[Rfam]
RNA sequence: CCAGGGCGGUGGCACCUGGGGGCAGCCUCAUGGUGGUGGCUGG
Numbered sequence: 001c002c003a004g005g006g007c008g009g010u011g012g013c014a015c016c017u018g019g020g021g022g023c024a025g026c027c028u029c030a031u032g033g034u035g036g037u038g039g040c041u042g043g
Stems, first nucleotide, its partner, number of pairs: 001033003005029002

A member of the RNA family "Prion pseudoknot" from Tupaia belangeri, 43 nucleotides long. About the family: This family represents a predicted pseudoknot structure found in prion protein mRNA. It has been suggested that the family has a possible effect in prion protein translation. For this family Rfam cites "Pseudoknots in prion protein mRNAs confirmed by comparative sequence analysis and pattern searching" (Barrette et al., Nucleic Acids Res, 2001). The family has 148 seed sequences and 421 matches in Rfam 15.1. Rfam's curators put it in the seed alignment.